[Rfam]
RNA sequence: GACUAUAAUUUAUCACCUCUCUAUAGUCGCGGCUG
Numbered sequence: 001g002a003c004u005a006u007a008a009u010u011u012a013u014c015a016c017c018u019c020u021c022u023a024u025a026g027u028c029g030c031g032g033c034u035g
Base pairs, nucleotide, nucleotide: 001028002027003026004025005024006023007022